Source information: Shown here is a 73-nucleotide RNA sequence from Toxostoma redivivum, a member of the family "Small nucleolar RNA SNORD66". The family's consensus secondary structure was predicted with RNAalifold. By type it is a C/D-box small nucleolar RNA. From the family's description: snoRNA HBII-142 is part of the C/D family of snoRNAs. It is the human orthologue of the mouse MBII-142 snoRNA and is predicted to guide 2'O-ribose methylation of small 18S rRNA at residue C1272.
RNA sequence: CUGUGAUGAUCAAGCUUUUGAGCCGAUGUGUCUGGGCCACUGAUUUCCAUGAUGGAGUUGAGGAUCUGAAUAG
Numbered sequence: 001c002u003g004u005g006a007u008g009a010u011c012a013a014g015c016u017u018u019u020g021a022g023c024c025g026a027u028g029u030g031u032c033u034g035g036g037c038c039a040c041u042g043a044u045u046u047c048c049a050u051g052a053u054g055g056a057g058u059u060g061a062g063g064a065u066c067u068g069a070a071u072a073g
Stems, first nucleotide, its partner, number of pairs: 001073004